Annotation: The family of this 35-nucleotide sequence is "DUF805b RNA". The family's consensus secondary structure is taken from published work.
[Rfam]
RNA sequence: GAAGAGGUGCCCGAAAAUCUUUGAAAGAGUAGGGA
Numbered sequence: 001g002a003a004g005a006g007g008u009g010c011c012c013g014a015a016a017a018u019c020u021u022u023g024a025a026a027g028a029g030u031a032g033g034g035a
Base pairs, nucleotide, nucleotide: 002021003020004019005018010034011033012032
Clan: DUF805 clan.